Overview
This 90-nucleotide RNA sequence from Vibrio viridaestus belongs to the Rfam family "t44 RNA". The base pairs follow the family's consensus structure, which was predicted with LocARNA. The literature on the family includes a 2002 paper in Nucleic Acids Res by Tjaden et al., "Transcriptome analysis of Escherichia coli using high-density oligonucleotide probe arrays". By type it is a small RNA.

RNA sequence: UAACCUAAUUGUUUAUUUCACACACAUUUCGACACAUGUUCCGGGGUGCUCUUUGAUGAGUCGGUAAUAUGGGAAAUGUGGAGGCCUAAC
Numbered sequence: 001u002a003a004c005c006u007a008a009u010u011g012u013u014u015a016u017u018u019c020a021c022a023c024a025c026a027u028u029u030c031g032a033c034a035c036a037u038g039u040u041c042c043g044g045g046g047u048g049c050u051c052u053u054u055g056a057u058g059a060g061u062c063g064g065u066a067a068u069a070u071g072g073g074a075a076a077u078g079u080g081g082a083g084g085c086c087u088a089a090c
Base pairs, nucleotide, nucleotide: 023080024079025078026077027076028075029074030073035071036070037069038068039067041064042063043062048061049060050059051058